[Rfam]
RNA sequence: GCCCCCAUCGUCUAGAGGCCUAGGACACCUCCCUUUCACGGAGGCGACGGGGAUUCGAAUUCCCCUGGGGGUA
Numbered sequence: 001g002c003c004c005c006c007a008u009c010g011u012c013u014a015g016a017g018g019c020c021u022a023g024g025a026c027a028c029c030u031c032c033c034u035u036u037c038a039c040g041g042a043g044g045c046g047a048c049g050g051g052g053a054u055u056c057g058a059a060u061u062c063c064c065c066u067g068g069g070g071g072u073a
Stems, first nucleotide, its partner, number of pairs: 001072007010026004028044005049065005

This 73-nucleotide RNA from Cyanophora paradoxa belongs to the Rfam family "tRNA". The base pairs follow the family's consensus structure, which is taken from published work. NCBI's taxonomy places the organism under Eukaryota, Glaucocystophyceae, Cyanophorales, Cyanophoraceae, Cyanophora. By type it is a transfer RNA.